[Rfam]
RNA sequence: CCCUUAACUGUUAAAAGUUUCGUUUUGGUCCUUUAACUUACUUUUUGGUUUCGUUUUGGUCCCUUAACUCUUCCUCCGUCAACCACUUUGGUCCUUUAUGUUAGGAUGAAUGUAUUAGAGUUAAGGAAUCAAAAUGAAACCAAAAAAUAAGUUAAGGGACCAAAAUGAAACUUUUAAUAGUUAAGGGACCAAAAGAAAACCCAAAAAUAAGUUAUGGGACCGAAAAGAAACUUUUAAUAGUUAAGGAA
Numbered sequence: 001c002c003c004u005u006a007a008c009u010g011u012u013a014a015a016a017g018u019u020u021c022g023u024u025u026u027g028g029u030c031c032u033u034u035a036a037c038u039u040a041c042u043u044u045u046u047g048g049u050u051u052c053g054u055u056u057u058g059g060u061c062c063c064u065u066a067a068c069u070c071u072u073c074c075u076c077c078g079u080c081a082a083c084c085a086c087u088u089u090g091g092u093c094c095u096u097u098a099u100g101u102u103a104g105g106a107u108g109a110a111u112g113u114a115u116u117a118g119a120g121u122u123a124a125g126g127a128a129u130c131a132a133a134a135u136g137a138a139a140c141c142a143a144a145a146a147a148u149a150a151g152u153u154a155a156g157g158g159a160c161c162a163a164a165a166u167g168a169a170a171c172u173u174u175u176a177a178u179a180g181u182u183a184a185g186g187g188a189c190c191a192a193a194a195g196a197a198a199a200c201c202c203a204a205a206a207a208u209a210a211g212u213u214a215u216g217g218g219a220c221c222g223a224a225a226a227g228a229a230a231c232u233u234u235u236a237a238u239a240g241u242u243a244a245g246g247a248a
Base pairs, nucleotide, nucleotide: 002246003245004244005243006242007241008240023225024224025223027221028220029219031217032216034214035213036212037211038210039209040208042206043205045203047201048200049199